[Rfam]
Record summary: Rfam assigns this 79-nucleotide sequence from Parambassis ranga to the family "mir-17 microRNA precursor family". The organism belongs to Parambassis, within Eukaryota.

RNA sequence: UCUGUAUUGUCAAAGUGCUUACAGUGCAGGUAGUACUAUGUAAUACCUACUGCAGUGGAGGCACUUAAAACAAUACCCU
Numbered sequence: 001u002c003u004g005u006a007u008u009g010u011c012a013a014a015g016u017g018c019u020u021a022c023a024g025u026g027c028a029g030g031u032a033g034u035a036c037u038a039u040g041u042a043a044u045a046c047c048u049a050c051u052g053c054a055g056u057g058g059a060g061g062c063a064c065u066u067a068a069a070a071c072a073a074u075a076c077c078c079u
Stems, first nucleotide, its partner, number of pairs: 004076004009071002013066008022057002025054003029051005